[Rfam]
RNA sequence: CUCUUAUCAAGAGAGGUGGAGGGAUGUGCCCGAUGAAACCCGGCAACCGUCAGUUUUUAAACUGUAAAGGUGCCAAUUCACACAGGAGAGAUACCUGGGAGAUGAGAG
Dot-bracket structure: ((((((((....(.(((...(((.[[[[)))......))))((((.((..((..........))....))))))...(]]]]((((.(...).))))..)))))))))
RNA: SAM riboswitch aptamer (S box leader)
Organism: Jeotgalibacillus soli